[Rfam]
RNA: 6S / SsrS RNA
RNA sequence: CUUUGCCUGCCGUGUUAGUGAGCUUUUUCUUGUUUCGAACCUUGCGUUUUAAAAGGGAGUUCUACAUCGAGCUAAUGCCAGCAAGCCAGUUUAUGCUGGACGCUGAAAUUAGUUCUGCGAACACCCACCUACUUGAGUAGGUUCAUGAAACAACUGAAGCAACGGCAUUCGCGGGUAUAUA
Numbered sequence: 001c002u003u004u005g006c007c008u009g010c011c012g013u014g015u016u017a018g019u020g021a022g023c024u025u026u027u028u029c030u031u032g033u034u035u036c037g038a039a040c041c042u043u044g045c046g047u048u049u050u051a052a053a054a055g056g057g058a059g060u061u062c063u064a065c066a067u068c069g070a071g072c073u074a075a076u077g078c079c080a081g082c083a084a085g086c087c088a089g090u091u092u093a094u095g096c097u098g099g100a101c102g103c104u105g106a107a108a109u110u111a112g113u114u115c116u117g118c119g120a121a122c123a124c125c126c127a128c129c130u131a132c133u134u135g136a137g138u139a140g141g142u143u144c145a146u147g148a149a150a151c152a153a154c155u156g157a158a159g160c161a162a163c164g165g166c167a168u169u170c171g172c173g174g175g176u177a178u179a180u181a
Stems, first nucleotide, its partner, number of pairs: 002179001004177007012168004018163002031150001033148002037144005055126003059122004066116001069115007081103002086099004